[Rfam]
RNA sequence: AAAGCAUCAAUGAUGAGUAAUAUAUAACUCGUUAUCCUUGCACUUUGAUCCUUGAAAUGAAGAAAAUUAUGGGGAAAAUUAAUCUGAGAUGCUU
Numbered sequence: 001a002a003a004g005c006a007u008c009a010a011u012g013a014u015g016a017g018u019a020a021u022a023u024a025u026a027a028c029u030c031g032u033u034a035u036c037c038u039u040g041c042a043c044u045u046u047g048a049u050c051c052u053u054g055a056a057a058u059g060a061a062g063a064a065a066a067u068u069a070u071g072g073g074g075a076a077a078a079u080u081a082a083u084c085u086g087a088g089a090u091g092c093u094u
Stems, first nucleotide, its partner, number of pairs: 002094007
This 94-nucleotide sequence from Nicotiana tabacum belongs to the Rfam family "Small nucleolar RNA snoR26".
It is annotated as a C/D-box small nucleolar RNA.
Rfam 15.1 lists 611 matches to the family in 220 species.
The family's consensus secondary structure was predicted with WAR.
Its family is annotated with nucleolus and RNA processing in the Gene Ontology.